[Rfam]
RNA: mir-454 microRNA precursor family
RNA sequence: AAGCCUUUCCCGGUAGGCCGAGACCCUAUCAAUGUUGCCUCUGCUGUUCGGAUAUUCUCACAGUAGUGCAAUGUUGCUUAUAGGGUUCUGGACAGCGGGAGAC
Numbered sequence: 001a002a003g004c005c006u007u008u009c010c011c012g013g014u015a016g017g018c019c020g021a022g023a024c025c026c027u028a029u030c031a032a033u034g035u036u037g038c039c040u041c042u043g044c045u046g047u048u049c050g051g052a053u054a055u056u057c058u059c060a061c062a063g064u065a066g067u068g069c070a071a072u073g074u075u076g077c078u079u080a081u082a083g084g085g086u087u088c089u090g091g092a093c094a095g096c097g098g099g100a101g102a103c
Stems, first nucleotide, its partner, number of pairs: 020089001022087008030076009041066005